Rfam assigns this 45-nucleotide sequence from Granulicella mallensis to the family "Acido-Lenti-1 RNA".
Taxonomically the source falls in Granulicella mallensis (Bacteria, Pseudomonadati, Terriglobales, Acidobacteriaceae).
RNA sequence: CCCAGGGUUGCACCCUGGGCUUUGAUAGAGCGCGCCUUUAGCGCU
Number, nucleotide and partner (000 for none) at each position: 001c019002c018003c017004a016005g015006g014007g013008u012009u000010g000011c000012a008013c007014c006015c005016u004017g003018g002019g001020c000021u000022u000023u000024g000025a000026u000027a000028g000029a000030g000031c000032g044033c043034g042035c041036c000037u000038u000039u000040a000041g035042c034043g033044c032045u000